[Rfam]
RNA sequence: UGGUUGUGACUGCCUGUAACAGCAACUCCAUGUGGAAGUGAGUGAGUGUGUUCCAGUGGAGCUGCUGUUACCUGCAGACACUAA
Numbered sequence: 001u002g003g004u005u006g007u008g009a010c011u012g013c014c015u016g017u018a019a020c021a022g023c024a025a026c027u028c029c030a031u032g033u034g035g036a037a038g039u040g041a042g043u044g045a046g047u048g049u050g051u052u053c054c055a056g057u058g059g060a061g062c063u064g065c066u067g068u069u070a071c072c073u074g075c076a077g078a079c080a081c082u083a084a
Base pairs, nucleotide, nucleotide: 010077011076012075016071017070018069019068020067021066022065023064026061027060028059029058030057031056033055034054035053
Rfam assigns this 84-nucleotide RNA sequence from Astyanax mexicanus to the family "mir-194 microRNA precursor family". The base pairs follow the family's consensus structure, which was predicted with RNAalifold. A reference for the family is Lagos-Quintana et al. (2003), "New microRNAs from mouse and human", RNA.